[Rfam]
RNA: c-di-GMP-I riboswitch aptamer
RNA sequence: AGAUAUAUUUGGCAAACUUGUCGAAAGACUAGGACGCAAAGCCACGGGUCUAAAGCAAUGAGAAUUGCUACGAUCGCCGGGUUGCAGCA
Numbered sequence: 001a002g003a004u005a006u007a008u009u010u011g012g013c014a015a016a017c018u019u020g021u022c023g024a025a026a027g028a029c030u031a032g033g034a035c036g037c038a039a040a041g042c043c044a045c046g047g048g049u050c051u052a053a054a055g056c057a058a059u060g061a062g063a064a065u066u067g068c069u070a071c072g073a074u075c076g077c078c079g080g081g082u083u084g085c086a087g088c089a
Stems, first nucleotide, its partner, number of pairs: 012037002017032002020029003040083004045079003048074003055068004